RNA sequence: AUCCUGUGCCCAUGCGUCGCUGACUCCUGUCAGCACCAUGCCAGCAGCCUCGGUCUUCCAGGCUGCGAUGCGGUUCCCCCGCAUGACCGAACCAGUCCGCUCCGCAUCGUAUUGCGGACGAGCGUCCAUCCCGACGCCGAUGC
Numbered sequence: 001a002u003c004c005u006g007u008g009c010c011c012a013u014g015c016g017u018c019g020c021u022g023a024c025u026c027c028u029g030u031c032a033g034c035a036c037c038a039u040g041c042c043a044g045c046a047g048c049c050u051c052g053g054u055c056u057u058c059c060a061g062g063c064u065g066c067g068a069u070g071c072g073g074u075u076c077c078c079c080c081g082c083a084u085g086a087c088c089g090a091a092c093c094a095g096u097c098c099g100c101u102c103c104g105c106a107u108c109g110u111a112u113u114g115c116g117g118a119c120g121a122g123c124g125u126c127c128a129u130c131c132c133g134a135c136g137c138c139g140a141u142g143c
Base pairs, nucleotide, nucleotide: 011040012039013038014037019034020033021032022031023030024029044066045065046064047063048062049061052088053087054086055085068084069083070082071081072080073079114143115142116141122137123136124135125134126133
RNA: radC RNA